Notes: This 83-nucleotide sequence from Paenisporosarcina cavernae belongs to the Rfam family "c-di-GMP-I riboswitch aptamer".

[Rfam]
RNA sequence: UUUCGAAAAAGGCAAACUGAUUGAAAAAUCAGGACGCAAAGUUCCGGGCCUAAAGAGUCUUCUAAGGCGGCUGAGCUACCGAA
Numbered sequence: 001u002u003u004c005g006a007a008a009a010a011g012g013c014a015a016a017c018u019g020a021u022u023g024a025a026a027a028a029u030c031a032g033g034a035c036g037c038a039a040a041g042u043u044c045c046g047g048g049c050c051u052a053a054a055g056a057g058u059c060u061u062c063u064a065a066g067g068c069g070g071c072u073g074a075g076c077u078a079c080c081g082a083a
Base pairs, nucleotide, nucleotide: 012037013036017032018031019030020029021028022027040077041076042075043074045073046072047071048068049067050066055062056061
The base pairs follow the family's consensus structure, which is taken from published work.